[Rfam]
RNA sequence: AUGCCUUAAACUAAUGAGUAAGGAAAAUAACGAGCUGGGGUGACGCCUGGUUCCUCACUACUCAUGUGAGAAGAAUUUUUGAGCGGGUACAGGUCGCCCCCAGGAGGAUCCACCUACCUCGUGAGACCUUCGGGUGCAGUGAUCUGCCCG
Numbered sequence: 001a002u003g004c005c006u007u008a009a010a011c012u013a014a015u016g017a018g019u020a021a022g023g024a025a026a027a028u029a030a031c032g033a034g035c036u037g038g039g040g041u042g043a044c045g046c047c048u049g050g051u052u053c054c055u056c057a058c059u060a061c062u063c064a065u066g067u068g069a070g071a072a073g074a075a076u077u078u079u080u081g082a083g084c085g086g087g088u089a090c091a092g093g094u095c096g097c098c099c100c101c102a103g104g105a106g107g108a109u110c111c112a113c114c115u116a117c118c119u120c121g122u123g124a125g126a127c128c129u130u131c132g133g134g135u136g137c138a139g140u141g142a143u144c145u146g147c148c149c150g
Base pairs, nucleotide, nucleotide: 004023005022006021007020008019032053033052034051035050036049037048038047039046054070055069056068057067058066084150085149086148087147088146091145092144093143094142095141096140097139100134101133103131104130105129106128107127109125111123112122113121
The record is a 150-nucleotide RNA from Xenopus laevis, which matches "U12 minor spliceosomal RNA" in Rfam. The organism belongs to Xenopus, within Eukaryota. The match comes from Rfam's covariance-model search (136 bits).